Overview: The family of this 40-nucleotide RNA sequence is "S4-Flavobacteria ribosomal protein leader". On this family, see Eckert and Weinberg, BMC Microbiol 2020: "Discovery of 20 novel ribosomal leader candidates in bacteria and archaea". Pairs were carried over by alignment from the consensus structure, which is taken from published work.

RNA sequence: UACUAUCGAAGGAUUAGAUUAAGACCUUAAUUCAUAGUUA
Numbered sequence: 001u002a003c004u005a006u007c008g009a010a011g012g013a014u015u016a017g018a019u020u021a022a023g024a025c026c027u028u029a030a031u032u033c034a035u036a037g038u039u040a
Stems, first nucleotide, its partner, number of pairs: 001040001002038005008033001009028004